[Rfam]
Nucleotides: 073
Base pairs, nucleotide, nucleotide: 001072002071003070004069005068006067007066010025011024012023013022027043028042029041030040031039049065050064051063052062053061
Number, partner (000 for none) and nucleotide at each position: 001072g002071c003070c004069a005068a006067a007066g008000u009000a010025g011024c012023u013022c014000a015000g016000c017000u018000g019000g020000u021000a022013g023012a024011g025010c026000a027043a028042c029041g030040c031039a032000c033000u034000c035000g036000u037000a038000a039031u040030g041029c042028g043027u044000a045000g046000g047000u048000c049065u050064g051063g052062a053061g054000u055000u056000c057000g058000a059000g060000u061053c062052u063051c064050c065049a066007c067006u068005u069004u070003g071002g072001c073000u